[Rfam]
RNA sequence: ACUCAACGUCAUUCAAUUAAAAAGGGUGAGUUUAGAUUGUAAAAGCAAGCCGUCUCAGACACGGAUCCUUAAGCAAUUUGUUAGCCCUAAACUUGUUUUAUGGAGUUU
Numbered sequence: 001a002c003u004c005a006a007c008g009u010c011a012u013u014c015a016a017u018u019a020a021a022a023a024g025g026g027u028g029a030g031u032u033u034a035g036a037u038u039g040u041a042a043a044a045g046c047a048a049g050c051c052g053u054c055u056c057a058g059a060c061a062c063g064g065a066u067c068c069u070u071a072a073g074c075a076a077u078u079u080g081u082u083a084g085c086c087c088u089a090a091a092c093u094u095g096u097u098u099u100a101u102g103g104a105g106u107u108u
Stems, first nucleotide, its partner, number of pairs: 023088005034079005043070003050064004